[Rfam]
RNA sequence: CCUCUGUCCUCCCCGCACAGGAGGGCAGAACGCGAGGCCCCGGUGCUCUCUGCCCUGACGGCGCCCGGGUCCGCGAUCGCUCCGGGCUGCGGUGCCGGGAGGGUUGAGGGUCCCUCUCAGGCGC
Numbered sequence: 001c002c003u004c005u006g007u008c009c010u011c012c013c014c015g016c017a018c019a020g021g022a023g024g025g026c027a028g029a030a031c032g033c034g035a036g037g038c039c040c041c042g043g044u045g046c047u048c049u050c051u052g053c054c055c056u057g058a059c060g061g062c063g064c065c066c067g068g069g070u071c072c073g074c075g076a077u078c079g080c081u082c083c084g085g086g087c088u089g090c091g092g093u094g095c096c097g098g099g100a101g102g103g104u105u106g107a108g109g110g111u112c113c114c115u116c117u118c119a120g121g122c123g124c
Base pairs, nucleotide, nucleotide: 003029004028005027006026008024009023010022011021012020032074033073034072037071040068041067042066043065045062046061047058048057078094079093080092081091083089084088097118098117099116100115101114102113103112